[Rfam]
RNA sequence: UUCUUUCAGGUCUGUGGUUGCGGAUUUUCCUAGUCCAAGGCAGAUGCGGUCAAAAGGAUCCACGUAAGCUACCAACAAAUUGUUUGGGGCGAUCAUGGCGCAUCCUAGGGGUAAGUCGCACCGUCUGUAUUACAUAUAAAUGCAGCAUAGGGCUGCGCAGGCGAGAGAACGAUGUCGUUGGCUUAGUUCCAGUGCGCGAGUGUGGGGGCAAAGACCAGGUCAGCUGAAAGAA
Numbered sequence: 001u002u003c004u005u006u007c008a009g010g011u012c013u014g015u016g017g018u019u020g021c022g023g024a025u026u027u028u029c030c031u032a033g034u035c036c037a038a039g040g041c042a043g044a045u046g047c048g049g050u051c052a053a054a055a056g057g058a059u060c061c062a063c064g065u066a067a068g069c070u071a072c073c074a075a076c077a078a079a080u081u082g083u084u085u086g087g088g089g090c091g092a093u094c095a096u097g098g099c100g101c102a103u104c105c106u107a108g109g110g111g112u113a114a115g116u117c118g119c120a121c122c123g124u125c126u127g128u129a130u131u132a133c134a135u136a137u138a139a140a141u142g143c144a145g146c147a148u149a150g151g152g153c154u155g156c157g158c159a160g161g162c163g164a165g166a167g168a169a170c171g172a173u174g175u176c177g178u179u180g181g182c183u184u185a186g187u188u189c190c191a192g193u194g195c196g197c198g199a200g201u202g203u204g205g206g207g208g209c210a211a212a213g214a215c216c217a218g219g220u221c222a223g224c225u226g227a228a229a230g231a232a
Stems, first nucleotide, its partner, number of pairs: 001232009012223003015217005037203001039201001040050001043104006059098002064093001069088001072086001096210001117196005122163007167189004174182002
Dot-bracket structure: (((((((((..((((((((.................(.([..((((((.]........((...(....(..(.............).)....)..[))))))))............((((((((((((............................)))))))...((((...((.....))...))))..)))))....).)......]..)))))...))))))))))))
Background: Shown here is a 232-nucleotide RNA, a member of the family "raiA RNA". By type it is a riboswitch.